[Rfam]
Background
The family of this 73-nucleotide sequence from Mus musculus is "mir-148/mir-152 microRNA precursor family". For this family Rfam cites "Identification of many microRNAs that copurify with polyribosomes in mammalian neurons" (Kim et al., Proc Natl Acad Sci U S A, 2004).
RNA sequence: UUGAGACAAAGUUCUGAGACACUCCGACUCUGAGUAUGAUAGAAGUCAGUGCACUACAGAACUUUGUCUCUAG
Number, nucleotide and partner (000 for none) at each position: 001u000002u000003g000004a069005g068006a067007c066008a065009a064010a063011g062012u061013u060014c059015u058016g057017a000018g000019a000020c051021a050022c049023u048024c000025c000026g047027a046028c045029u044030c000031u000032g000033a000034g000035u000036a000037u000038g000039a000040u000041a000042g000043a000044a029045g028046u027047c026048a023049g022050u021051g020052c000053a000054c000055u000056a000057c016058a015059g014060a013061a012062c011063u010064u009065u008066g007067u006068c005069u004070c000071u000072a000073g000